[Rfam]
RNA sequence: AGAUGAGAGGGCGAUCUGGCUGCAACAUCUGUCACCCCACUGAUGUCCAGGACAGAUUCAGCUGAUCUGGCUGGGUAGGCAAGUGUCCCCUUCCUACCCCAAGGCUCCAUUCACACCCCUGCCAAAGCUGCGCACUCGGACACAGAGGACAACCUCCCAACAGGACACGGUACCGCUCAUCAAACAAAGGUAUACAGUAGCUGAACUCCCCUGCUACUGCCUGCAAAAAAGCUCAAGGUCCAUUUGUAGGAGAAAAUAGGGUAGUCAAGCUUCCAGGACUGCAGACAUAGCUAAGUGAGAUGUCCCAACAACCCAAAAAAAGCUCGAAAUCCAUUUCUU
Numbered sequence: 001a002g003a004u005g006a007g008a009g010g011g012c013g014a015u016c017u018g019g020c021u022g023c024a025a026c027a028u029c030u031g032u033c034a035c036c037c038c039a040c041u042g043a044u045g046u047c048c049a050g051g052a053c054a055g056a057u058u059c060a061g062c063u064g065a066u067c068u069g070g071c072u073g074g075g076u077a078g079g080c081a082a083g084u085g086u087c088c089c090c091u092u093c094c095u096a097c098c099c100c101a102a103g104g105c106u107c108c109a110u111u112c113a114c115a116c117c118c119c120u121g122c123c124a125a126a127g128c129u130g131c132g133c134a135c136u137c138g139g140a141c142a143c144a145g146a147g148g149a150c151a152a153c154c155u156c157c158c159a160a161c162a163g164g165a166c167a168c169g170g171u172a173c174c175g176c177u178c179a180u181c182a183a184a185c186a187a188a189g190g191u192a193u194a195c196a197g198u199a200g201c202u203g204a205a206c207u208c209c210c211c212u213g214c215u216a217c218u219g220c221c222u223g224c225a226a227a228a229a230a231g232c233u234c235a236a237g238g239u240c241c242a243u244u245u246g247u248a249g250g251a252g253a254a255a256a257u258a259g260g261g262u263a264g265u266c267a268a269g270c271u272u273c274c275a276g277g278a279c280u281g282c283a284g285a286c287a288u289a290g291c292u293a294a295g296u297g298a299g300a301u302g303u304c305c306c307a308a309c310a311a312c313c314c315a316a317a318a319a320a321a322g323c324u325c326g327a328a329a330u331c332c333a334u335u336u337c338u339u
Base pairs, nucleotide, nucleotide: 002107003106007100009098010097013093014092018090019089025086026085027084028083030081031080032079033078035074036073037070038069039068042067043066044065047061116170117169118164119163120162121161122139123138125136127135147157148156149155200270201269202268206264207263209261210260211259212258213257221252222251224249227247229245230244231243297337298336299335300334301333302330
Rfam assigns this 339-nucleotide RNA from Acrocephalus arundinaceus to the family "7SK RNA". The family's consensus secondary structure is taken from published work. Rfam 15.1 lists 49,373 matches to the family in 668 species. The family's RNA type in Rfam is non-coding RNA gene. Rfam describes the family as follows. 7SK was discovered as an abundant small nuclear RNA in the mid-70s but a possible function has only recently been suggested.